[Rfam]
Shown here is a 205-nucleotide sequence from Firmicutes bacterium CAG:582, a member of the family "RT-2 RNA". The match comes from Rfam's covariance-model search (52 bits). The family's RNA type in Rfam is small RNA.
RNA sequence: UUCUAAAUGAAAGGAUUGAUAUUUCCUAAGAAUAUGAAUAUAUUCUUAAAGAUGACUAAUGAUAAUUAUACUAGGACGCUUCUUGCAUGGUUAAAGUUUUAUUCAUUUACUUUAAUUUCAUUGGUAUAUAUUUAAGUAAGUAGAUUAAAUGAAUCAAUAAAUUUAUUGAGUCUUAUACAUUAGUUUUUAAGGAGAAUUUUUCUCC
Numbered sequence: 001u002u003c004u005a006a007a008u009g010a011a012a013g014g015a016u017u018g019a020u021a022u023u024u025c026c027u028a029a030g031a032a033u034a035u036g037a038a039u040a041u042a043u044u045c046u047u048a049a050a051g052a053u054g055a056c057u058a059a060u061g062a063u064a065a066u067u068a069u070a071c072u073a074g075g076a077c078g079c080u081u082c083u084u085g086c087a088u089g090g091u092u093a094a095a096g097u098u099u100u101a102u103u104c105a106u107u108u109a110c111u112u113u114a115a116u117u118u119c120a121u122u123g124g125u126a127u128a129u130a131u132u133u134a135a136g137u138a139a140g141u142a143g144a145u146u147a148a149a150u151g152a153a154u155c156a157a158u159a160a161a162u163u164u165a166u167u168g169a170g171u172c173u174u175a176u177a178c179a180u181u182a183g184u185u186u187u188u189a190a191g192g193a194g195a196a197u198u199u200u201u202c203u204c205c
Base pairs, nucleotide, nucleotide: 029046030045031044032043033042034041035040054185055184056183057182058181059180060179061178063177064132065131066130069126070125071124072123073122078086079085089117090116091115092114093113094112095111096110097109136176137175138174139173140172143155144154